RNA sequence: UUGCCAUUUAAAAUGGUGCCUUCGAUAACUUUUUUCAUUAUUUUUUUAAUGUCUAAUCGCGUACCGUUACAUAGCCGUGGCGG
Dot-bracket structure: .((((((....(((((((....((((.....(...(((((......)))))...)))))..)))))))........)))))).